[Rfam]
RNA sequence: GCGGGCCUGGCCUAUUACUCCAUGCAGGGCAACUGGGCCAAGGUCGCA
Numbered sequence: 001g002c003g004g005g006c007c008u009g010g011c012c013u014a015u016u017a018c019u020c021c022a023u024g025c026a027g028g029g030c031a032a033c034u035g036g037g038c039c040a041a042g043g044u045c046g047c048a
Stems, first nucleotide, its partner, number of pairs: 006043003010038005020029002
Shown here is a 48-nucleotide RNA sequence from Orthohepacivirus hominis, a member of the family "Hepatitis C virus stem-loop SL1412 RNA". Rfam's curators put it in the seed alignment. Pairs were carried over by alignment from the consensus structure, which was predicted with RNAfold. NCBI's taxonomy places the organism under Viruses, Kitrinoviricota, Flasuviricetes, Orthohepacivirus, Orthohepacivirus hominis. Rfam's curators write: HCV_SL1412 is a stem-loop in the coding region of the C (core) gene.